[Rfam]
RNA sequence: UCUGGCAGUGAUGAGCCACUUGCCCUCUCUGAGAACAGAGUUCGGUAAUGACAAUCUUUACUCUGGACUCAAGUUCUGAGCCAGA
Dot-bracket structure: ((((((.........................................................................))))))
Numbered sequence: 001u002c003u004g005g006c007a008g009u010g011a012u013g014a015g016c017c018a019c020u021u022g023c024c025c026u027c028u029c030u031g032a033g034a035a036c037a038g039a040g041u042u043c044g045g046u047a048a049u050g051a052c053a054a055u056c057u058u059u060a061c062u063c064u065g066g067a068c069u070c071a072a073g074u075u076c077u078g079a080g081c082c083a084g085a
Stems, first nucleotide, its partner, number of pairs: 001085006

The family of this 85-nucleotide RNA from Bos taurus is "Small nucleolar RNA SNORD103/SNORD85". The sequence is in the family's curated seed alignment. By type it is a C/D-box small nucleolar RNA.